[Rfam]
RNA sequence: GAAGUCCACGGGCCGCAGCCAGCGUUCCGGGGAGCCGGGGACCCACUUUCGGAGAGGUCCGGACACACCGGAACCGACACCGACUGGGGUGAAUCCGUAGCCACGUGACCCUGUUCACGCAUGCGCGCGGACGGGCUUCUCCAGCCCGAACCCGUCAGCUAACUCGGUAGGCGGACGAGGAGAGGAGAA
Numbered sequence: 001g002a003a004g005u006c007c008a009c010g011g012g013c014c015g016c017a018g019c020c021a022g023c024g025u026u027c028c029g030g031g032g033a034g035c036c037g038g039g040g041a042c043c044c045a046c047u048u049u050c051g052g053a054g055a056g057g058u059c060c061g062g063a064c065a066c067a068c069c070g071g072a073a074c075c076g077a078c079a080c081c082g083a084c085u086g087g088g089g090u091g092a093a094u095c096c097g098u099a100g101c102c103a104c105g106u107g108a109c110c111c112u113g114u115u116c117a118c119g120c121a122u123g124c125g126c127g128c129g130g131a132c133g134g135g136c137u138u139c140u141c142c143a144g145c146c147c148g149a150a151c152c153c154g155u156c157a158g159c160u161a162a163c164u165c166g167g168u169a170g171g172c173g174g175a176c177g178a179g180g181a182g183a184g185g186a187g188a189a
Stems, first nucleotide, its partner, number of pairs: 012172003019032002034168006044086002087153003095130004133147004